The family of this 144-nucleotide sequence from Lupinus albus is "small nucleolar RNA snoR135".

RNA sequence: AAAGCAGGGAUUGUGUGUAUCGGUUUUGUGCUAUUGUUAAUGCAUUAUUCCGAAAGAUUUCCCUGCAACAUUAUCUUGAGAAAAUGGGCAGUUGUUUUUCAUUUUAUUCAAUUGAAAAUCACAACAAUCAUUUUCCCCACAUUU
Numbered sequence: 001a002a003a004g005c006a007g008g009g010a011u012u013g014u015g016u017g018u019a020u021c022g023g024u025u026u027u028g029u030g031c032u033a034u035u036g037u038u039a040a041u042g043c044a045u046u047a048u049u050c051c052g053a054a055a056g057a058u059u060u061c062c063c064u065g066c067a068a069c070a071u072u073a074u075c076u077u078g079a080g081a082a083a084a085u086g087g088g089c090a091g092u093u094g095u096u097u098u099u100c101a102u103u104u105u106a107u108u109c110a111a112u113u114g115a116a117a118a119u120c121a122c123a124a125c126a127a128u129c130a131u132u133u134u135c136c137c138c139a140c141a142u143u144u
Base pairs, nucleotide, nucleotide: 004066005065006064007063008062009061010060015045016044017043018042019041020040078138080136082134083133084131085130086129087128091125092124093123094122

A reference for the family is Chen and Wu (2009), "Mining small RNA sequencing data: a new approach to identify small nucleolar RNAs in Arabidopsis", Nucleic Acids Res.
The base pairs follow the family's consensus structure, which was predicted with RNAalifold.
Rfam links the family to the GO terms RNA processing and nucleolus.
It scores 127 bits against the family's covariance model.
It is annotated as an H/ACA-box small nucleolar RNA.